Shown here is a 211-nucleotide RNA sequence, a member of the family "raiA RNA". It is annotated as a riboswitch.

RNA sequence: AUCCUUCGGAUCUGUGGUUGCAAGCCGAUGCCAGUCGCAGGCCAAGCGGUCCACGUAAUCCGGCCAAAGCGCCGGGGAGCAUGGUGCGGUUUAGAGGUAAGCCCGUCCGGAAUGCGGAAGCGUUUCGAGAGGAGUGCGUGAGGGCGCACGAUGCGUUGAGCAACCUCCCAGACGGCGAGUGUGGGGUCAAAGACCAGGUCAGCCGAAGGUU
Numbered sequence: 001a002u003c004c005u006u007c008g009g010a011u012c013u014g015u016g017g018u019u020g021c022a023a024g025c026c027g028a029u030g031c032c033a034g035u036c037g038c039a040g041g042c043c044a045a046g047c048g049g050u051c052c053a054c055g056u057a058a059u060c061c062g063g064c065c066a067a068a069g070c071g072c073c074g075g076g077g078a079g080c081a082u083g084g085u086g087c088g089g090u091u092u093a094g095a096g097g098u099a100a101g102c103c104c105g106u107c108c109g110g111a112a113u114g115c116g117g118a119a120g121c122g123u124u125u126c127g128a129g130a131g132g133a134g135u136g137c138g139u140g141a142g143g144g145c146g147c148a149c150g151a152u153g154c155g156u157u158g159a160g161c162a163a164c165c166u167c168c169c170a171g172a173c174g175g176c177g178a179g180u181g182u183g184g185g186g187u188c189a190a191a192g193a194c195c196a197g198g199u200c201a202g203c204c205g206a207a208g209g210u211u
Stems, first nucleotide, its partner, number of pairs: 001211001003209007012202003015196005028182003031041001033091007050084002059075002062072001082189001103175005108127008131168004138161002145155003